[Rfam]
Overview: The family of this 90-nucleotide RNA sequence is "GA-cis RNA". The sequence is in the family's curated seed alignment. The base pairs follow the family's consensus structure, which is taken from published work. Rfam classes the family as a small RNA.

RNA sequence: GAGAGGAGGCCCCAACUGCUGAACAGCAGCAUUUCUGUAAUGGGGAUGACGACAUGCCGCCGGAGCGCAGCUGAGGGGGCGAUACUAUUA
Number, nucleotide and partner (000 for none) at each position: 001g000002a000003g000004a000005g000006g000007a000008g047009g000010c045011c044012c043013c042014a000015a000016c000017u031018g030019c029020u028021g027022a000023a000024c000025a000026g000027c021028a020029g019030c018031a017032u000033u000034u000035c000036u000037g000038u000039a000040a000041u000042g013043g012044g011045g010046a000047u008048g000049a000050c000051g000052a000053c000054a000055u000056g080057c079058c078059g000060c076061c075062g000063g000064a072065g071066c000067g000068c000069a000070g000071c065072u064073g000074a000075g061076g060077g000078g058079g057080c056081g000082a000083u000084a000085c000086u000087a000088u000089u000090a000